The record is a 160-nucleotide RNA, which matches "DUF2800 RNA" in Rfam. By type it is a cis-regulatory element. The family's consensus secondary structure is taken from published work.
RNA sequence: CUGUCAAAUAUCGCGUCGUUUGAUCAGCGAUGGCUCAACGAUAGAUGACGGUAAAACCGAAUAUCUACAGCUGCCUAUUGAGCGGGAAGCUGCAAUCCGGAAUGGAGGUGACUCCAUCAGGACUGCGGUUGGAUUACUAUUGCCACUUGGCAGCUGACCA
Numbered sequence: 001c002u003g004u005c006a007a008a009u010a011u012c013g014c015g016u017c018g019u020u021u022g023a024u025c026a027g028c029g030a031u032g033g034c035u036c037a038a039c040g041a042u043a044g045a046u047g048a049c050g051g052u053a054a055a056a057c058c059g060a061a062u063a064u065c066u067a068c069a070g071c072u073g074c075c076u077a078u079u080g081a082g083c084g085g086g087a088a089g090c091u092g093c094a095a096u097c098c099g100g101a102a103u104g105g106a107g108g109u110g111a112c113u114c115c116a117u118c119a120g121g122a123c124u125g126c127g128g129u130u131g132g133a134u135u136a137c138u139a140u141u142g143c144c145a146c147u148u149g150g151c152a153g154c155u156g157a158c159c160a
Stems, first nucleotide, its partner, number of pairs: 001051005009043005014032005033083006068156007089129005102117005
Dot-bracket structure: (((((...((((((((((.........)))))[[[[[[)))))...)))))................(((((((...]]]]]].....(((((........(((((......))))).......)))))....................)))))))....